[Rfam]
Nucleotides: 095
Base pairs, nucleotide, nucleotide: 002090003089004088005087006086007085012079013078014077015076017075018074019073020072025071026070027069
Number, partner (000 for none) and nucleotide at each position: 001000g002090c003089g004088c005087u006086g007085g008000u009000u010000u011000a012079g013078c014077u015076c016000a017075g018074u019073g020072g021000u022000u023000a024000c025071u026070u027069c028000u029000c030000a031000g032000c033000a034000a035000u036000g037000u038000c039000u040000a041000u042000g043000c044000u045000u046000u047000c048000c049000a050000a051000g052000c053000c054000u055000u056000c057000g058000u059000c060000a061000g062000a063000g064000g065000g066000u067000u068000c069027g070026a071025a072020c073019c074018a075017c076015g077014g078013g079012c080000g081000c082000u083000g084000u085007c086006u087005a088004g089003c090002g091000c092000u093000u094000u095000u
The record is a 95-nucleotide RNA from Oreochromis niloticus, which matches "Vault RNA" in Rfam. The family's consensus secondary structure is taken from published work. Rfam's curators write: This family of RNAs are found as part of the enigmatic vault ribonucleoprotein complex.